[Rfam]
Shown here is a 65-nucleotide RNA from Nezara viridula, a member of the family "mir-71 microRNA precursor family". The base pairs follow the family's consensus structure, which was predicted with RNAalifold. Rfam 15.1 lists 372 matches to the family in 291 species. The match comes from Rfam's covariance-model search (69 bits). Gene Ontology terms of the family: miRNA-mediated post-transcriptional gene silencing and RISC complex. The organism belongs to Nezara, within Eukaryota.
RNA sequence: CCUGCGUGAAAGACAUGGGUAGUGAGAUGUGUAUUACGUCUCACUACCUUGUCUUUCAUGUAGUC
Numbered sequence: 001c002c003u004g005c006g007u008g009a010a011a012g013a014c015a016u017g018g019g020u021a022g023u024g025a026g027a028u029g030u031g032u033a034u035u036a037c038g039u040c041u042c043a044c045u046a047c048c049u050u051g052u053c054u055u056u057c058a059u060g061u062a063g064u065c
Base pairs, nucleotide, nucleotide: 008057009056010055011054012053013052014051015050017049018048019047021045022044023043024042025041026040027039028038029037
Dot-bracket structure: .......((((((((.(((.(((((((((.......))))))))).)))))))))))........